[Rfam]
RNA sequence: AUAAGUCUUCAGGGCAGGGUGUAAUUCCCGACCGGUGGUAAAGUCCACGAACUGAUUCGCAAGAUGAGGUUGAACUGGUGUAAUUCCAGUACCGACAGUAAAGUCUGGAUGGGAGAAGAUAGAU
Dot-bracket structure: ....((((((......(((.......))).[[((((((....[[))))..(((..............)))...(((((.......)))))]])).(((....]]))).......))))))....
The family of this 124-nucleotide RNA from Facklamia sp. 252 is "FMN riboswitch aptamer (RFN element)". The match comes from Rfam's covariance-model search (119 bits).